RNA sequence: CAGUGUGGGCAGAGAUGCUCACGUAUGGGCCGGCAGAAGUCAGCCGAGGCCAUAGUAGUCCCGUUGCACCGGGACGAAGGGC
Numbered sequence: 001c002a003g004u005g006u007g008g009g010c011a012g013a014g015a016u017g018c019u020c021a022c023g024u025a026u027g028g029g030c031c032g033g034c035a036g037a038a039g040u041c042a043g044c045c046g047a048g049g050c051c052a053u054a055g056u057a058g059u060c061c062c063g064u065u066g067c068a069c070c071g072g073g074a075c076g077a078a079g080g081g082c
Stems, first nucleotide, its partner, number of pairs: 001027002004023008040047002049082003058075006

This 82-nucleotide sequence belongs to the Rfam family "Group II catalytic intron D1-D4-1". Gene Ontology term of the family: Group II intron splicing. Rfam's curators put it in the seed alignment. About the family: Group II introns are found in rRNA, tRNA and mRNA of organelles in fungi, plants and protists, and also in mRNA in bacteria.